Notes: A member of the RNA family "Bacterial RNase P class A" from Smithella sp. F21, 374 nucleotides long.
RNA sequence: GGAGAAGAUCAGAUGAUCGCGGGCAGAUUUUUAUCUGCCGGAGGAAAGUCCGAGCUCCACAGGGCAGGAUGGUCGCUAACGGCGACUGGGGGCGACCCUAAGGAAAGUGCCACAGAAAAUAUACCGCCCGCCAAAUGGCGGGUAAGGGUGAAAUGGCGAGGUAAGAGCUCACCGCUUUUCCGGUGACGGAAAAGGCAUGGUAAACCCCAUCCGGAGCAAGACCAAAUAGGAGAACGUUUAAGGGCGGCCCGCCUGAUGUUCUCGGGUAGUGUCGCUAGAGGCGGCAGGCAACUGCCGUCCCAGAUGAAUGAUCAUUGCCGCGUCCAGGGUAACCGAAACGCGGAACAGAACUCGGCUUAUGAUCUUCUCUCGUG
Number, nucleotide and partner (000 for none) at each position: 001g370002g369003a368004g367005a366006a365007g364008a363009u362010c361011a360012g316013a315014u314015g313016a312017u311018c310019g000020c041021g000022g039023g038024c037025a036026g035027a034028u033029u000030u000031u000032u000033a028034u027035c026036u025037g024038c023039c022040g000041g020042a000043g000044g000045a000046a358047a357048g356049u000050c355051c354052g353053a352054g351055c216056u215057c214058c213059a000060c000061a000062g250063g249064g248065c247066a000067g212068g211069a210070u209071g208072g086073u085074c084075g083076c082077u000078a000079a000080c000081g000082g076083c075084g074085a073086c072087u101088g099089g098090g097091g096092g000093c000094g000095a000096c091097c090098c089099u088100a000101a087102g207103g206104a000105a000106a000107g205108u204109g201110c200111c199112a000113c000114a000115g000116a000117a000118a000119a000120u000121a000122u000123a000124c147125c146126g143127c142128c141129c140130g139131c138132c137133a000134a000135a000136u000137g132138g131139c130140g129141g128142g127143u126144a000145a000146g125147g124148g000149u000150g000151a000152a000153a000154u000155g173156g172157c000158g170159a169160g168161g000162u000163a000164a000165g000166a000167g000168c160169u159170c158171a000172c156173c155174g196175c194176u193177u192178u191179u190180c189181c188182g187183g000184u000185g000186a000187c182188g181189g180190a179191a178192a177193a176194g175195g000196c174197a000198u000199g111200g110201u109202a000203a000204a108205c107206c103207c102208c071209a070210u069211c068212c067213g058214g057215a056216g055217c000218a000219a000220g273221a272222c271223c269224a000225a000226a000227u000228a000229g000230g263231a262232g261233a260234a259235c258236g000237u000238u000239u000240a000241a000242g254243g253244g252245c251246g000247g065248c064249c063250c062251g245252c244253c243254u242255g000256a000257u000258g235259u234260u233261c232262u231263c230264g000265g000266g000267u000268a000269g223270u000271g222272u221273c220274g000275c000276u000277a000278g000279a000280g299281g298282c297283g296284g295285c294286a293287g292288g000289c000290a000291a000292c287293u286294g285295c284296c283297g282298u281299c280300c000301c000302a000303g000304a000305u000306g000307a000308a000309u000310g018311a017312u016313c015314a014315u013316u012317g000318c000319c000320g000321c000322g000323u000324c000325c000326a000327g000328g000329g000330u000331a000332a000333c000334c000335g000336a000337a000338a000339c000340g000341c000342g000343g000344a000345a000346c000347a000348g000349a000350a000351c054352u053353c052354g051355g050356c048357u047358u046359a000360u011361g010362a009363u008364c007365u006366u005367c004368u003369c002370u001371c000372g000373u000374g000